[Rfam]
RNA: Small nucleolar RNA SNORD22
Nucleotides: 129
Stems, first nucleotide, its partner, number of pairs: 001128004
Number, partner (000 for none) and nucleotide at each position: 001128u002127u003126c004125u005000u006000g007000g008000g009000a010000a011000c012000a013000c014000u015000g016000a017000a018000u019000c020000a021000u022000g023000a024000g025000u026000c027000a028000a029000a030000u031000g032000u033000g034000c035000a036000g037000c038000g039000c040000u041000u042000u043000g044000a045000c046000u047000c048000u049000a050000g051000u052000a053000a054000g055000g056000c057000a058000g059000g060000g061000u062000g063000g064000u065000g066000a067000a068000c069000c070000c071000a072000g073000u074000g075000g076000g077000g078000c079000u080000g081000g082000c083000u084000g085000g086000a087000g088000g089000a090000a091000a092000a093000g094000a095000g096000g097000a098000a099000g100000u101000u102000u103000u104000g105000u106000u107000c108000c109000a110000g111000a112000a113000g114000g115000a116000a117000c118000u119000g120000u121000c122000u123000g124000a125004g126003g127002g128001a129000u